[Rfam]
RNA sequence: UAAUUAUUGAUAGAAGGGAAGAUCGGCGGACGAUGAAAAUAUAAUCUUAUUUUUAAAAAUUGAAAUAGCAUAUUUCAACUAAUAAAAACUAGGAUUAGUCUGCCCAUUUUCUAUAAACUGUAAAGCUAUUUAAUUAAAUAGCUUGUUUGAGCAAUGUGUAAAUACGGCUAAUCCUUCCAAGUUAAUUGGGAGGAUUUUUUU
Numbered sequence: 001u002a003a004u005u006a007u008u009g010a011u012a013g014a015a016g017g018g019a020a021g022a023u024c025g026g027c028g029g030a031c032g033a034u035g036a037a038a039a040u041a042u043a044a045u046c047u048u049a050u051u052u053u054u055a056a057a058a059a060u061u062g063a064a065a066u067a068g069c070a071u072a073u074u075u076c077a078a079c080u081a082a083u084a085a086a087a088a089c090u091a092g093g094a095u096u097a098g099u100c101u102g103c104c105c106a107u108u109u110u111c112u113a114u115a116a117a118c119u120g121u122a123a124a125g126c127u128a129u130u131u132a133a134u135u136a137a138a139u140a141g142c143u144u145g146u147u148u149g150a151g152c153a154a155u156g157u158g159u160a161a162a163u164a165c166g167g168c169u170a171a172u173c174c175u176u177c178c179a180a181g182u183u184a185a186u187u188g189g190g191a192g193g194a195u196u197u198u199u200u201u
Stems, first nucleotide, its partner, number of pairs: 016112004023106001025104002029100003042097008051088004058080001060078007118149001120147001125142007170196011

The record is a 201-nucleotide RNA from Paenisporosarcina antarctica, which matches "Bacillus sRNA ncr1575" in Rfam. Lineage of the source: Bacteria > Bacilli > Caryophanales > Caryophanaceae > Paenisporosarcina. Pairs were carried over by alignment from the consensus structure, which is taken from published work. On this family, see Irnov et al., Nucleic Acids Res 2010: "Identification of regulatory RNAs in Bacillus subtilis". It scores 139 bits against the family's covariance model.